[Rfam]
RNA sequence: GAGCGGCGUCGCGACUGGCGCAUCAGGUGGAUCACCACCGGGGAGCGACAUGCUUUCUGACCGACGCAACACGGGUCGUUCGCCUGGGCCCCGGUC
Dot-bracket structure: ..(..(.(((((..(([[[[......((((....))))..))..))))).)..)..................(((((...]]]]..))))).....
RNA: ZMP/ZTP riboswitch aptamer (pfl RNA motif)
Organism: Luteimicrobium xylanilyticum